[Rfam]
RNA sequence: GGUGGGUGGCUUAUCCGUUUGCCUGUUUUGCUGACGUUCUUUUGACUCAUUCUCAGCAAAACAGGCAAAUGGAUAAUUCAUCCAAC
Numbered sequence: 001g002g003u004g005g006g007u008g009g010c011u012u013a014u015c016c017g018u019u020u021g022c023c024u025g026u027u028u029u030g031c032u033g034a035c036g037u038u039c040u041u042u043u044g045a046c047u048c049a050u051u052c053u054c055a056g057c058a059a060a061a062c063a064g065g066c067a068a069a070u071g072g073a074u075a076a077u078u079c080a081u082c083c084a085a086c
Stems, first nucleotide, its partner, number of pairs: 001086001003084007011076002014073009024063011
RNA: mir-1468 microRNA precursor family